[Rfam]
RNA sequence: ACUACGUACUUACCUACUAUAUAGUAGCUGAGAUACGUGUAUUUUGCCUACUAUAUAGCAGGUAAGUACACAGUUU
Numbered sequence: 001a002c003u004a005c006g007u008a009c010u011u012a013c014c015u016a017c018u019a020u021a022u023a024g025u026a027g028c029u030g031a032g033a034u035a036c037g038u039g040u041a042u043u044u045u046g047c048c049u050a051c052u053a054u055a056u057a058g059c060a061g062g063u064a065a066g067u068a069c070a071c072a073g074u075u076u
Stems, first nucleotide, its partner, number of pairs: 001074003006069010017058011029046003033042003
Description: Rfam assigns this 76-nucleotide RNA sequence from Ameiurus melas to the family "mir-7563 microRNA precursor family". NCBI's taxonomy places the organism under Eukaryota, Neopterygii, Otomorpha, Siluriformes, Ameiurus. The family's consensus secondary structure was predicted with RNAalifold.